[Rfam]
transfer-messenger RNA: a 370-nucleotide sequence from Listeria monocytogenes. The family's RNA type in Rfam is non-coding RNA gene. Bacterial tmRNA, also known as 10Sa RNA or SsrA, is named for its dual tRNA and mRNA-like properties. Its role is to liberate the mRNA from a stalled ribosome. To accomplish this part of the tmRNA is used as a reading frame that ends in a translation stop signal. The literature on the family includes a 1996 paper in RNA by Williams and Bartel, "Phylogenetic analysis of tmRNA secondary structure".

RNA sequence: GGGGAUGUUACGGAUUCGACAGGGAUAGUUCGAGCUUGAGUUGCGAGUCGGGGGGAUCGUCCUCGUUAUCAACGUCAAAGCCAAUAAUAACUGGCAAAGAAAAACAAAACCUAGCUUUCGCUGCCUAAUAAGCAGUAGCAUAGCUGAUCCUCCGUGCAUCGCCCAUGUGCUACGGUAAGGGUCUCACUCUAAGUGGGCUACACUAGUUAAUCUCCGUCUGGGGUUAAAUAGAAGAGCUUAAUCAGACUAGCUGAAUGGAAGCCUGUUACCGGGCCGAUGUUUAUGCGAAAUGCUAAUACGGUGACUACGCUCGUAGAUAUUUAAGUGCCGAUAUUUCUGGACGUGGGUUCGACUCCCACCAUCUCCAUAU
Numbered sequence: 001g002g003g004g005a006u007g008u009u010a011c012g013g014a015u016u017c018g019a020c021a022g023g024g025a026u027a028g029u030u031c032g033a034g035c036u037u038g039a040g041u042u043g044c045g046a047g048u049c050g051g052g053g054g055g056a057u058c059g060u061c062c063u064c065g066u067u068a069u070c071a072a073c074g075u076c077a078a079a080g081c082c083a084a085u086a087a088u089a090a091c092u093g094g095c096a097a098a099g100a101a102a103a104a105c106a107a108a109a110c111c112u113a114g115c116u117u118u119c120g121c122u123g124c125c126u127a128a129u130a131a132g133c134a135g136u137a138g139c140a141u142a143g144c145u146g147a148u149c150c151u152c153c154g155u156g157c158a159u160c161g162c163c164c165a166u167g168u169g170c171u172a173c174g175g176u177a178a179g180g181g182u183c184u185c186a187c188u189c190u191a192a193g194u195g196g197g198c199u200a201c202a203c204u205a206g207u208u209a210a211u212c213u214c215c216g217u218c219u220g221g222g223g224u225u226a227a228a229u230a231g232a233a234g235a236g237c238u239u240a241a242u243c244a245g246a247c248u249a250g251c252u253g254a255a256u257g258g259a260a261g262c263c264u265g266u267u268a269c270c271g272g273g274c275c276g277a278u279g280u281u282u283a284u285g286c287g288a289a290a291u292g293c294u295a296a297u298a299c300g301g302u303g304a305c306u307a308c309g310c311u312c313g314u315a316g317a318u319a320u321u322u323a324a325g326u327g328c329c330g331a332u333a334u335u336u337c338u339g340g341a342c343g344u345g346g347g348u349u350c351g352a353c354u355c356c357c358a359c360c361a362u363c364u365c366c367a368u369a370u
Stems, first nucleotide, its partner, number of pairs: 001366007020339008029330001032328001034326008044313005049065005054082002057079001116143002120139005146183006152175004156170004161198006203231003207227005216247006250286002252283006261274003265305004271299001343359005